[Rfam]
RNA: MIR2587 microRNA precursor family
Organism: Medicago truncatula
RNA sequence: GUGUCAUGGUCAUUGUCGACCGUUCAUAAAAUCCCUGCAAUUGCUUUGCAGCUUAUGCGGGGUUUCUACGACGGUCAACAAAGACCUUUGACAU
Numbered sequence: 001g002u003g004u005c006a007u008g009g010u011c012a013u014u015g016u017c018g019a020c021c022g023u024u025c026a027u028a029a030a031a032u033c034c035c036u037g038c039a040a041u042u043g044c045u046u047u048g049c050a051g052c053u054u055a056u057g058c059g060g061g062g063u064u065u066c067u068a069c070g071a072c073g074g075u076c077a078a079c080a081a082a083g084a085c086c087u088u089u090g091a092c093a094u
Base pairs, nucleotide, nucleotide: 001094002093003092004091005090006089008086009085010084011083013081014080015079016078018076019075020074021073022072023071024070027068028067030065031064033062034061035060036059037058038057039056043052